RNA: gut-2 RNA
RNA sequence: AACCUUGCCCUAAGUGGUGGGCAAGAAGAGCUAAGUGGAGCUGACAGG
Numbered sequence: 001a002a003c004c005u006u007g008c009c010c011u012a013a014g015u016g017g018u019g020g021g022c023a024a025g026a027a028g029a030g031c032u033a034a035g036u037g038g039a040g041c042u043g044a045c046a047g048g
Stems, first nucleotide, its partner, number of pairs: 004025007029042004